About this RNA
Rfam assigns this 66-nucleotide sequence to the family "RAGATH-18 RNA".
[Rfam]
RNA sequence: GCUGUGGAGAGCAAAAACAAAUACGAGUAGAUAUUUUUAUCAAAAGUAUGUUCGUUGAAGCAGCAA
Dot-bracket structure: (((((...(((((........(((.....(((......)))....))))))))......)))))..
Numbered sequence: 001g002c003u004g005u006g007g008a009g010a011g012c013a014a015a016a017a018c019a020a021a022u023a024c025g026a027g028u029a030g031a032u033a034u035u036u037u038u039a040u041c042a043a044a045a046g047u048a049u050g051u052u053c054g055u056u057g058a059a060g061c062a063g064c065a066a
Stems, first nucleotide, its partner, number of pairs: 001064005009053005022048003030041003
About the family: Actinobacteria, Firmicutes, Fusobacteria, Thermotogae (1 example).